This 125-nucleotide sequence from Otolemur garnettii belongs to the Rfam family "Small nucleolar RNA SNORA41". The base pairs follow the family's consensus structure, which was predicted with PFOLD. From the family's description: ACA41 is a member of the H/ACA class of snoRNA that guide the sites of modification of uridines to pseudouridines. The organism belongs to Otolemur, within Eukaryota. On this family, see Huttenhofer et al., EMBO J 2001: "RNomics: an experimental approach that identifies 201 candidates for novel, small, non-messenger RNAs in mouse".

[Rfam]
RNA sequence: AUCCAUCAGCGCAGCUGUUCUUAUAUGACAGUUGUGGCCUUCCUCUGUGGGAAAGAAACUGUUAACACAGUUAAAUACCUCCUUCUUAGCAAAACAGAAAGUGGAUAUAUGUGUGACAGACAAAA
Numbered sequence: 001a002u003c004c005a006u007c008a009g010c011g012c013a014g015c016u017g018u019u020c021u022u023a024u025a026u027g028a029c030a031g032u033u034g035u036g037g038c039c040u041u042c043c044u045c046u047g048u049g050g051g052a053a054a055g056a057a058a059c060u061g062u063u064a065a066c067a068c069a070g071u072u073a074a075a076u077a078c079c080u081c082c083u084u085c086u087u088a089g090c091a092a093a094a095c096a097g098a099a100a101g102u103g104g105a106u107a108u109a110u111g112u113g114u115g116a117c118a119g120a121c122a123a124a125a
Stems, first nucleotide, its partner, number of pairs: 010036008065114005079104002081101001083099004